[Rfam]
RNA: Plant signal recognition particle RNA
Organism: Ipomoea nil
RNA sequence: GCCGAGCCUAGUAAAGUGGGCUUGUAACUCGAGCUAGGGUAUUGAGAUAAUGGAACAUUGAGCAAGUCUGACCAAUUCGUUCUAAUUGGUGAACGGUGGCUCGCCCUUUCUAAGCAUAGAGUUGGGCUAAGGUUUCCGGGCAAAGGCUUGGGCUUCUUAGCUCCUAGAGGGUAGGGCAAUGCGUGAGGCUGGUUUCACAAAGCAGCGAUAACCUCCCCUAUUCUUUGUAGUGGAAGGAUAACGAGCUUCUGCUGCUUGGGAUGCCUUACACUGAUUGGGCUAUCAUAUGGACCCUUAUCUCU
Dot-bracket structure: ((((((((((......)))))))....((......)))))...(((((((.((..((.(((((....((((.((.(.(((((((((.(.((....(.((((((.((.(((((.(((.(((((.(((((((((..(((((((....)))))))..)))))))))(....)((.(((......(((.....((......)).....)))....))).))..))))).)))..)))))))....)))))).)))).).))))))))......).)).)))))))..))..))..)).))))))).